[Rfam]
RNA sequence: CUACCUUGGCAUUCUAUCUAAAAAGGUACAAACAUCGCAUUGUCAAAAAGAGGUCGUUUUAGUGCGUAGGCGCUGUGGGACUUCAUUGUCCCGAUGAUGCAGCGAAUCGUGCAUACGAGAUUGUCCAGUAGUUGGUUGCUCGUAUCUUUAGAAGAUAGCCAAAUGACUCGUCAUC
Numbered sequence: 001c002u003a004c005c006u007u008g009g010c011a012u013u014c015u016a017u018c019u020a021a022a023a024a025g026g027u028a029c030a031a032a033c034a035u036c037g038c039a040u041u042g043u044c045a046a047a048a049a050g051a052g053g054u055c056g057u058u059u060u061a062g063u064g065c066g067u068a069g070g071c072g073c074u075g076u077g078g079g080a081c082u083u084c085a086u087u088g089u090c091c092c093g094a095u096g097a098u099g100c101a102g103c104g105a106a107u108c109g110u111g112c113a114u115a116c117g118a119g120a121u122u123g124u125c126c127a128g129u130a131g132u133u134g135g136u137u138g139c140u141c142g143u144a145u146c147u148u149u150a151g152a153a154g155a156u157a158g159c160c161a162a163a164u165g166a167c168u169c170g171u172c173a174u175c
Stems, first nucleotide, its partner, number of pairs: 002028006034174002037171002050169003054161001056159001062112005071104006077092005114144006

A member of the RNA family "R2 RNA element" from Drosophila willistoni, 175 nucleotides long. Rfam classes the family as a cis-regulatory element. Its family is annotated with regulation of reverse transcription in the Gene Ontology. Rfam describes the family as follows. This family represents the 3' UTR region of the R2 retrotransposable element. This family is known to interact with the R2-encoded reverse transcriptase in a reaction known as target primed reverse transcription (TPRT).